A member of the RNA family "drum RNA" from Dorea sp. 5-2, 114 nucleotides long. Rfam classes the family as a small RNA. Rfam's curators write: Firmicutes, Bacteroidetes (1 example), Proteobacteria (2 examples), Spirochaetes (2 examples). The source organism's lineage runs through Bacteria, Bacillota, Clostridia, Lachnospirales and Dorea. The base pairs follow the family's consensus structure, which is taken from published work. Rfam's curators put it in the seed alignment.
RNA sequence: UGGUUAUGAAACAAUUGACUGUGUCGGUAUGCAGCCGAUUGUGGAGCCAGACCUUGGGUUAUGCGAUAACCUCAAACCGAAUAGGUUCUUCAGAACUGAAAGAAAACGCUUUUA
Numbered sequence: 001u002g003g004u005u006a007u008g009a010a011a012c013a014a015u016u017g018a019c020u021g022u023g024u025c026g027g028u029a030u031g032c033a034g035c036c037g038a039u040u041g042u043g044g045a046g047c048c049a050g051a052c053c054u055u056g057g058g059u060u061a062u063g064c065g066a067u068a069a070c071c072u073c074a075a076a077c078c079g080a081a082u083a084g085g086u087u088c089u090u091c092a093g094a095a096c097u098g099a100a101a102g103a104a105a106a107c108g109c110u111u112u113u114a
Stems, first nucleotide, its partner, number of pairs: 001049004011042007019034004024080004063109003084097004